Rfam assigns this 76-nucleotide sequence from Mauremys mutica to the family "mir-23 microRNA precursor family". The base pairs follow the family's consensus structure, which was predicted with PFOLD. Its family is annotated with gene silencing by miRNA and RISC complex in the Gene Ontology. The family has 83 seed sequences and 1,403 matches in Rfam 15.1.
[Rfam]
RNA sequence: UGCCAGCUGGGGUUCCUGGUGAUGCGAUUUUUAUCCUACCACCCAAAAUCACAUUGCCAGGGAUUUCCAACGGGCA
Numbered sequence: 001u002g003c004c005a006g007c008u009g010g011g012g013u014u015c016c017u018g019g020u021g022a023u024g025c026g027a028u029u030u031u032u033a034u035c036c037u038a039c040c041a042c043c044c045a046a047a048a049u050c051a052c053a054u055u056g057c058c059a060g061g062g063a064u065u066u067c068c069a070a071c072g073g074g075c076a
Base pairs, nucleotide, nucleotide: 001076002075004073006071010068011067012064013063014062015061016060017059018058019057020056021055022054023053024052026050027049028048029047030046
It scores 67 bits against the family's covariance model.